The family of this 69-nucleotide sequence from Python bivittatus is "Selenocysteine insertion sequence 1". The family has 61 seed sequences and 3,793 matches in Rfam 15.1. NCBI's taxonomy places the organism under Eukaryota, Eumetazoa, Bilateria, Episquamata, Python. Its family is annotated with selenocysteine incorporation in the Gene Ontology. Rfam classes the family as a cis-regulatory element.
RNA sequence: GUUUCUUUAUGAUGACCGGUUUUGAAAUGGUUUUGGAGCGCCAGGAAACCGAGUCUGAAAUUGGGAGAC
Dot-bracket structure: (((((........((((((((((.....(.(.....).).....))))))).))).........)))))
Numbered sequence: 001g002u003u004u005c006u007u008u009a010u011g012a013u014g015a016c017c018g019g020u021u022u023u024g025a026a027a028u029g030g031u032u033u034u035g036g037a038g039c040g041c042c043a044g045g046a047a048a049c050c051g052a053g054u055c056u057g058a059a060a061u062u063g064g065g066a067g068a069c
Stems, first nucleotide, its partner, number of pairs: 001069005014055003017051007029039001031037001
From the family's description: The incorporation of selenocysteine into a protein sequence is directed by an in-frame UGA codon (usually a stop codon) within the coding region of the mRNA. Selenoprotein mRNAs contain a conserved secondary structure in the 3' UTR that is required for the distinction of UGA stop from UGA selenocysteine. The selenocysteine insertion sequence (SECIS) is around 60 nt in length and adopts a hairpin structure which is sufficiently well-defined and conserved to act as a computational screen for selenoprotein genes. On this family, see Walczak et al., RNA 1996: "A novel RNA structural motif in the selenocysteine insertion element of eukaryotic selenoprotein mRNAs".